[Rfam]
RNA sequence: ACGUCGCUGUCGUGCGAGGUCUCCCGCCGACGCCCCUGACGCACUUCCCCGGCGCCAGGUGCGCCCUCGGAGGGAGUCCUGGUCCGACAGCACACCGCAG
Numbered sequence: 001a002c003g004u005c006g007c008u009g010u011c012g013u014g015c016g017a018g019g020u021c022u023c024c025c026g027c028c029g030a031c032g033c034c035c036c037u038g039a040c041g042c043a044c045u046u047c048c049c050c051g052g053c054g055c056c057a058g059g060u061g062c063g064c065c066c067u068c069g070g071a072g073g074g075a076g077u078c079c080u081g082g083u084c085c086g087a088c089a090g091c092a093c094a095c096c097g098c099a100g
Stems, first nucleotide, its partner, number of pairs: 010087003014083002018079002021076005027070004031063003035059004040054003

Rfam assigns this 100-nucleotide RNA from Miniimonas arenae to the family "mraW RNA".
By type it is a cis-regulatory element.
The base pairs follow the family's consensus structure, which is taken from published work.
The match comes from Rfam's covariance-model search (59 bits).